This 72-nucleotide RNA from Rodentolepis nana belongs to the Rfam family "HDV ribozyme from F. prausnitzii". The base pairs follow the family's consensus structure, which is taken from published work. Rfam links the family to the GO term catalytic activity. The source organism's lineage runs through Eukaryota, Opisthokonta, Platyhelminthes, Cyclophyllidea and Rodentolepis.
[Rfam]
RNA sequence: GGGGUGCGUAAUAGACUUACCUCCACGAGGUGCACCCUGGGCAACGUAUACUUAUACGGCAAAAAGGUCGGU
Numbered sequence: 001g002g003g004g005u006g007c008g009u010a011a012u013a014g015a016c017u018u019a020c021c022u023c024c025a026c027g028a029g030g031u032g033c034a035c036c037c038u039g040g041g042c043a044a045c046g047u048a049u050a051c052u053u054a055u056a057c058g059g060c061a062a063a064a065a066g067g068u069c070g071g072u
Base pairs, nucleotide, nucleotide: 001038002037003036004035005034006033007032019031020030021029045058046057047056048055049054

A search with the family's covariance model found it, with a score of 48 bits.